RNA sequence: ACGCCGCCGCGUGCGGCGCCACGGCCUGGAACGGGCCGGGAAGCGGGGGUGGUGCCGUGUCGGCGCAGCACCACCCCCGCAUC
Numbered sequence: 001a002c003g004c005c006g007c008c009g010c011g012u013g014c015g016g017c018g019c020c021a022c023g024g025c026c027u028g029g030a031a032c033g034g035g036c037c038g039g040g041a042a043g044c045g046g047g048g049g050u051g052g053u054g055c056c057g058u059g060u061c062g063g064c065g066c067a068g069c070a071c072c073a074c075c076c077c078c079g080c081a082u083c
Base pairs, nucleotide, nucleotide: 002018003017004016005015006014007013020040022038023037024036025035026034027033043080044079045078046077047076048075049074050073051072052071053070054069055068057066058065059064

Streptomyces RNA 6106: an 83-nucleotide sequence. About the family: Identified by deep sequencing of transcriptome at the end of exponential growth phase. Appears smaller on northern blot than sequencing transcript. On this family, see Vockenhuber et al., RNA Biol 2011: "Deep sequencing-based identification of small non-coding RNAs in Streptomyces coelicolor".